[Rfam]
RNA sequence: GGCAGAUUAAUGAUGAAACAAUUACCCCAAGCGCUUUAUUCCACUGAUUUCAGUGUGAUGGAAAGCUAUGUUAUCAUAGCUUUUGUGGUUUUCAAUCUGAAACAUCU
Number, nucleotide and partner (000 for none) at each position: 001g000002g000003c000004a107005g106006a105007u104008u000009a000010a000011u000012g000013a000014u000015g000016a000017a000018a000019c000020a000021a000022u000023u000024a000025c000026c000027c000028c000029a000030a045031g044032c000033g042034c000035u000036u000037u000038a000039u000040u000041c000042c033043a000044c031045u030046g000047a000048u000049u000050u000051c000052a000053g000054u000055g000056u000057g000058a000059u000060g000061g084062a083063a082064a081065g080066c079067u078068a077069u076070g075071u000072u000073a000074u000075c070076a069077u068078a067079g066080c065081u064082u063083u062084u061085g000086u000087g000088g000089u000090u000091u000092u000093c000094a000095a000096u000097c000098u000099g000100a000101a000102a000103c000104a007105u006106c005107u004
RNA: Small nucleolar RNA Z194